[Rfam]
RNA sequence: GAUUCGCUUUCCGAACUGUCACCGUAUGGUGCGCGUGUCUGGGACAACCAGAAUAGGAGGCGAAUUUUUA
Numbered sequence: 001g002a003u004u005c006g007c008u009u010u011c012c013g014a015a016c017u018g019u020c021a022c023c024g025u026a027u028g029g030u031g032c033g034c035g036u037g038u039c040u041g042g043g044a045c046a047a048c049c050a051g052a053a054u055a056g057g058a059g060g061c062g063a064a065u066u067u068u069u070a
Base pairs, nucleotide, nucleotide: 001066002065003064004063005062006061007060008059010058011057012056017035018034019033020031021030022029023028038052039051040050041049
RNA: DUF3800-IX RNA